[Rfam]
RNA: Small nucleolar RNA SNORD97
RNA sequence: AUGCCCUGUGAUUAUAAAAAGACGCGUUAUUCUGAGGGUGAAAACCCGCUGCCAGCUCUCUCUUCGAUCUAGUCUUUUUAUUCAUCCCUUUUCUCAACUCUUCCCACCAUCUCUCCCCUCCCCCUCUCACUGCUUCACCUCUUUACUGGCAACUGGUCCGCUGAACGUGAUUAUGAGAUAUGAGGGCAU
Numbered sequence: 001a002u003g004c005c006c007u008g009u010g011a012u013u014a015u016a017a018a019a020a021g022a023c024g025c026g027u028u029a030u031u032c033u034g035a036g037g038g039u040g041a042a043a044a045c046c047c048g049c050u051g052c053c054a055g056c057u058c059u060c061u062c063u064u065c066g067a068u069c070u071a072g073u074c075u076u077u078u079u080a081u082u083c084a085u086c087c088c089u090u091u092u093c094u095c096a097a098c099u100c101u102u103c104c105c106a107c108c109a110u111c112u113c114u115c116c117c118c119u120c121c122c123c124c125u126c127u128c129a130c131u132g133c134u135u136c137a138c139c140u141c142u143u144u145a146c147u148g149g150c151a152a153c154u155g156g157u158c159c160g161c162u163g164a165a166c167g168u169g170a171u172u173a174u175g176a177g178a179u180a181u182g183a184g185g186g187c188a189u
Stems, first nucleotide, its partner, number of pairs: 001189006035101005